[Rfam]
RNA sequence: CGAUGCGCCUGCGGUUCCUCCCACCGCAGGCAUCGAGGUCUUCGGAUCCUCCUCCCACCGAAGACCCCCAAACGACACCCGCCGGUUCCUCCCCCGGCGGGUGUUGUUG
Numbered sequence: 001c002g003a004u005g006c007g008c009c010u011g012c013g014g015u016u017c018c019u020c021c022c023a024c025c026g027c028a029g030g031c032a033u034c035g036a037g038g039u040c041u042u043c044g045g046a047u048c049c050u051c052c053u054c055c056c057a058c059c060g061a062a063g064a065c066c067c068c069c070a071a072a073c074g075a076c077a078c079c080c081g082c083c084g085g086u087u088c089c090u091c092c093c094c095c096g097g098c099g100g101g102u103g104u105u106g107u108u109g
Stems, first nucleotide, its partner, number of pairs: 004032003009029006037066009075104011
Annotation
Alphaproteobacterial ar14: a 109-nucleotide RNA from Aureimonas endophytica. It is annotated as a small RNA. The source organism's lineage runs through Bacteria, Pseudomonadati, Alphaproteobacteria, Aurantimonadaceae and Aureimonas. Its family is annotated with biological process involved in symbiotic interaction in the Gene Ontology.